The record is a 187-nucleotide RNA from Prochlorococcus sp. MIT 0601, which matches "permuted transfer-messenger RNA" in Rfam. By type it is a non-coding RNA gene. Bacterial tmRNA, also known as 10Sa RNA or SsrA, is named for its dual tRNA and mRNA-like properties. Its role is to liberate the mRNA from a stalled ribosome. To accomplish this part of the tmRNA is used as a reading frame that ends in a translation stop signal. The broken mRNA is replaced in the ribosome by the tmRNA and translation of the tmRNA leads to addition of a proteolysis tag to the incomplete protein enabling recognition by a protease. Recently a number of permuted tmRNA genes have been found encoded in two parts. tmRNAs have been identified in eubacteria and some chloroplasts but are absent from archaeal and eukaryote nuclear genomes. For this family Rfam cites "Phylogenetic analysis of tmRNA secondary structure" (Williams and Bartel, RNA, 1996). Pairs were carried over by alignment from the consensus structure, which is taken from published work.
RNA sequence: GGUGAUCCACACCAGUAUUUCGGACAGCGGUUCGAUUCCGCUCAGCUCCAUUUUCUUACUUAGAGGGGCUGCAAUGGUUUCGACGGAAUAUAAGGCGGGUGACUGAAGCCUGCUCGGUAUGAGCAAAACCAUAAACGCUAACAACAUCGUUAGUUUCUCCCGUCAAACAGCCCCUGUUGCUGCUUGA
Numbered sequence: 001g002g003u004g005a006u007c008c009a010c011a012c013c014a015g016u017a018u019u020u021c022g023g024a025c026a027g028c029g030g031u032u033c034g035a036u037u038c039c040g041c042u043c044a045g046c047u048c049c050a051u052u053u054u055c056u057u058a059c060u061u062a063g064a065g066g067g068g069c070u071g072c073a074a075u076g077g078u079u080u081c082g083a084c085g086g087a088a089u090a091u092a093a094g095g096c097g098g099g100u101g102a103c104u105g106a107a108g109c110c111u112g113c114u115c116g117g118u119a120u121g122a123g124c125a126a127a128a129c130c131a132u133a134a135a136c137g138c139u140a141a142c143a144a145c146a147u148c149g150u151u152a153g154u155u156u157c158u159c160c161c162g163u164c165a166a167a168c169a170g171c172c173c174c175u176g177u178u179g180c181u182g183c184u185u186g187a
Stems, first nucleotide, its partner, number of pairs: 001104003005100001016090003020086003026042005043071007